[Rfam]
RNA sequence: GGAGUGACCCACGGGAGCCCGGUGCACCGGGCUGAGAGGGGGCAUGCAGCCCUCGACCGUCGAACCUGAUCCGGGUAAUGCCGGCGCAGGGAGGAGAGCUGCAUGUCGU
Numbered sequence: 001g002g003a004g005u006g007a008c009c010c011a012c013g014g015g016a017g018c019c020c021g022g023u024g025c026a027c028c029g030g031g032c033u034g035a036g037a038g039g040g041g042g043c044a045u046g047c048a049g050c051c052c053u054c055g056a057c058c059g060u061c062g063a064a065c066c067u068g069a070u071c072c073g074g075g076u077a078a079u080g081c082c083g084g085c086g087c088a089g090g091g092a093g094g095a096g097a098g099c100u101g102c103a104u105g106u107c108g109u
Stems, first nucleotide, its partner, number of pairs: 009094002011060004017032005039053005065090004071084004

The record is a 109-nucleotide RNA sequence from Phytohabitans flavus, which matches "TPP riboswitch aptamer (THI element)" in Rfam. Vitamin B(1) in its active form thiamin pyrophosphate (TPP) is an essential coenzyme that is synthesised by coupling of pyrimidine and thiazole moieties in bacteria.